[Rfam]
A member of the RNA family "SAH (S-adenosyl-L-homocysteine) riboswitch aptamer" from Pseudomonas sp. HAR-UPW-AIA-41, 129 nucleotides long. The match comes from Rfam's covariance-model search (60 bits). The family has 52 seed sequences and 1,354 matches in Rfam 15.1.

Nucleotides: 129
Stems, first nucleotide, its partner, number of pairs: 002059007021046006
Number, partner (000 for none) and nucleotide at each position: 001000c002059c003058g004057a005056c006055c007054g008053a009000g010000g011000g012000g013000c014000g015000c016000u017000g018000c019000a020000g021046c022045a023044g024043a025042c026041c027000c028000c029000u030000c031000c032000g033000g034000u035000u036000u037000c038000a039000c040000c041026g042025g043024u044023c045022u046021g047000u048000c049000a050000g051000g052000c053008u054007c055006g056005g057004u058003c059002g060000g061000g062000g063000c064000g065000c066000g067000u068000u069000c070000c071000c072000c073000a074000g075000g076000c077000u078000g079000c080000c081000g082000g083000a084000a085000g086000c087000u088000a089000c090000c091000g092000c093000c094000u095000c096000c097000g098000c099000c100000c101000u102000g103000c104000a105000a106000a107000c108000g109000c110000a111000c112000c113000a114000a115000c116000g117000g118000c119000g120000c121000c122000c123000a124000u125000u126000c127000g128000c129000a